S15-Flavobacteria ribosomal protein leader: a 66-nucleotide RNA sequence. Rfam's curators put it in the seed alignment. The family is grouped with related families in Rfam's "Ribosomal Protein S15 Leader clan".

RNA sequence: UACAUUUGCAACUUCAAGAAAAAUUCUUGAGUUUACAUAAUAAUCAUUUACAAUAAUAUUAGCAUG
Numbered sequence: 001u002a003c004a005u006u007u008g009c010a011a012c013u014u015c016a017a018g019a020a021a022a023a024u025u026c027u028u029g030a031g032u033u034u035a036c037a038u039a040a041u042a043a044u045c046a047u048u049u050a051c052a053a054u055a056a057u058a059u060u061a062g063c064a065u066g
Stems, first nucleotide, its partner, number of pairs: 014030006
The family's consensus secondary structure is taken from published work.